[Rfam]
RNA sequence: AGCUCUUCUUUGCCUUUUGGCUUAGAUCAAGUGUAGUAUCUGUUCUUUUCAGUUUAAUCUCUGGAAUCGUUCUAUGGAACGAACUAUUGAUUAAUCUAAUUUUUUCCUCCAGGUCGUGAUCCUCUGGGCUUGCCCAUGAUCACUUCCACAGUGUCCCUGGCCUUACACUACCGCCAGGCUGACGCGAACAUUG
Numbered sequence: 001a002g003c004u005c006u007u008c009u010u011u012g013c014c015u016u017u018u019g020g021c022u023u024a025g026a027u028c029a030a031g032u033g034u035a036g037u038a039u040c041u042g043u044u045c046u047u048u049u050c051a052g053u054u055u056a057a058u059c060u061c062u063g064g065a066a067u068c069g070u071u072c073u074a075u076g077g078a079a080c081g082a083a084c085u086a087u088u089g090a091u092u093a094a095u096c097u098a099a100u101u102u103u104u105u106c107c108u109c110c111a112g113g114u115c116g117u118g119a120u121c122c123u124c125u126g127g128g129c130u131u132g133c134c135c136a137u138g139a140u141c142a143c144u145u146c147c148a149c150a151g152u153g154u155c156c157c158u159g160g161c162c163u164u165a166c167a168c169u170a171c172c173g174c175c176a177g178g179c180u181g182a183c184g185c186g187a188a189c190a191u192u193g
Base pairs, nucleotide, nucleotide: 007026008025009024012021013020014019047066048065049064050063051062052061067082068081069080070079071078072077112147113146116143117142118141119140125136126135127134128133151185152184153183154182155181156178157177158176159175160174161173

U2 spliceosomal RNA: a 193-nucleotide sequence from Neoarthrinium moseri.
Rfam 15.1 lists 71,512 matches to the family in 2,642 species.
Rfam's curators write: U2 is a small nuclear RNA (snRNA) component of the spliceosome (involved in pre-mRNA splicing).
Clan: U2 clan.
A search with the family's covariance model found it, with a score of 158 bits.